[Rfam]
RNA: Glycine riboswitch aptamer
Organism: Azonexus hydrophilus
RNA sequence: GCCCCCUCUGCAGGAGAGAGAGCCGUGAAACCCACGCUCCGCCGAAGGCGCAAACUCCCAUAAUCGCUCAGGCAUAACGAACUGCAGAAAUUGA
Numbered sequence: 001g002c003c004c005c006c007u008c009u010g011c012a013g014g015a016g017a018g019a020g021a022g023c024c025g026u027g028a029a030a031c032c033c034a035c036g037c038u039c040c041g042c043c044g045a046a047g048g049c050g051c052a053a054a055c056u057c058c059c060a061u062a063a064u065c066g067c068u069c070a071g072g073c074a075u076a077a078c079g080a081a082c083u084g085c086a087g088a089a090a091u092u093g094a
Base pairs, nucleotide, nucleotide: 007088008087009086010085011084012083013082020039021038022037023036041073042072043071044069045068048067049066050065054061